[Rfam]
RNA sequence: UAGUUAAAUAGCUAUAUUUAUAUAUAUCCAGGGCACCCCGAAUUCGGGAGAGCUUCCCGGAGUCGACCUUCCUGCUGGCUGCUCUGUGACCGCUUCCCGGCUCUGCCCUCUUGGCCGAAGUGCCCGCUGCCGGGCGCGGGCCUCAGACAAUACAAUG
Number, nucleotide and partner (000 for none) at each position: 001u000002a000003g000004u000005u000006a000007a000008a000009u000010a000011g000012c000013u026014a025015u024016a023017u022018u000019u000020a000021u000022a017023u016024a015025u014026a013027u000028c000029c000030a000031g000032g000033g000034c000035a000036c000037c000038c000039c000040g000041a000042a000043u000044u100045c099046g000047g097048g096049a095050g000051a094052g093053c092054u000055u089056c088057c000058c086059g085060g084061a083062g082063u000064c081065g080066a000067c078068c077069u000070u000071c000072c000073u000074g000075c000076u000077g068078g067079c000080u065081g064082c062083u061084c060085u059086g058087u000088g056089a055090c000091c000092g053093c052094u051095u049096c048097c047098c000099g045100g044101c000102u000103c000104u000105g000106c000107c000108c000109u000110c000111u000112u000113g142114g141115c140116c139117g000118a000119a000120g137121u136122g135123c134124c133125c132126g131127c000128u000129g000130c000131c126132g125133g124134g123135c122136g121137c120138g000139g116140g115141c114142c113143u000144c000145a000146g000147a000148c000149a000150a000151u000152a000153c000154a000155a000156u000157g000

The family of this 157-nucleotide RNA is "Human acetyl-coA cholesterol acyltransferase mRNA". Rfam's curators put it in the seed alignment. Rfam links the family to the GO term regulation of translational initiation. The family's RNA type in Rfam is cis-regulatory element.